RNA sequence: UCAAAACUAAUCACUUGUCAUUUUCUAAUUGGUUUUUAGUGUGUUAGAAUUUUUAAUAAUCAAUUAGAAAAUGAUAAGUAACUAGUUUUGG
Numbered sequence: 001u002c003a004a005a006a007c008u009a010a011u012c013a014c015u016u017g018u019c020a021u022u023u024u025c026u027a028a029u030u031g032g033u034u035u036u037u038a039g040u041g042u043g044u045u046a047g048a049a050u051u052u053u054u055a056a057u058a059a060u061c062a063a064u065u066a067g068a069a070a071a072u073g074a075u076a077a078g079u080a081a082c083u084a085g086u087u088u089u090g091g
Stems, first nucleotide, its partner, number of pairs: 002090008011081001013079022036056004
This 91-nucleotide RNA sequence from Prunus armeniaca belongs to the Rfam family "MIR6288 microRNA precursor family".
It scores 78 bits against the family's covariance model.
The source organism's lineage runs through Eukaryota, Euphyllophyta, eudicotyledons, Amygdaloideae and Prunus.